A member of the RNA family "mir-33 microRNA precursor family" from Rhipicephalus sanguineus, 68 nucleotides long. Pairs were carried over by alignment from the consensus structure, which was predicted with PFOLD. The match comes from Rfam's covariance-model search (74 bits).
RNA sequence: UUGCGGUGCAUUGUAGUUGCAUUGCAUGUUUGUUUGUACAGUGCAGUGCUUCUGCAGUGCAAUCGCAA
Numbered sequence: 001u002u003g004c005g006g007u008g009c010a011u012u013g014u015a016g017u018u019g020c021a022u023u024g025c026a027u028g029u030u031u032g033u034u035u036g037u038a039c040a041g042u043g044c045a046g047u048g049c050u051u052c053u054g055c056a057g058u059g060c061a062a063u064c065g066c067a068a
Stems, first nucleotide, its partner, number of pairs: 001068004006064001007061010019049001021047007

The organism belongs to Rhipicephalus, within Eukaryota.